[Rfam]
RNA: Enterococcus sRNA 55
RNA sequence: UAUAUUUUUUUGUUUAGCAGCUUACUUCGUUGACAGACGAGGUAGGCUCUUUUUG
Dot-bracket structure: ...............((.(((((((((((((....))))))))))))))).....